RNA sequence: GCUACAUGAGGUAGAGAUAGACUGCUUCUACGCGCCUGCUUUGCAGGUCAAAAGAGAUGCGGGAUCCGGCGCAGGCCCGCCAUGUACA
Numbered sequence: 001g002c003u004a005c006a007u008g009a010g011g012u013a014g015a016g017a018u019a020g021a022c023u024g025c026u027u028c029u030a031c032g033c034g035c036c037u038g039c040u041u042u043g044c045a046g047g048u049c050a051a052a053a054g055a056g057a058u059g060c061g062g063g064a065u066c067c068g069g070c071g072c073a074g075g076c077c078c079g080c081c082a083u084g085u086a087c088a
Stems, first nucleotide, its partner, number of pairs: 003086006011031005022074004033054001034048004059080005

A member of the RNA family "skipping-rope RNA", 88 nucleotides long. The base pairs follow the family's consensus structure, which is taken from published work. The family's RNA type in Rfam is small RNA.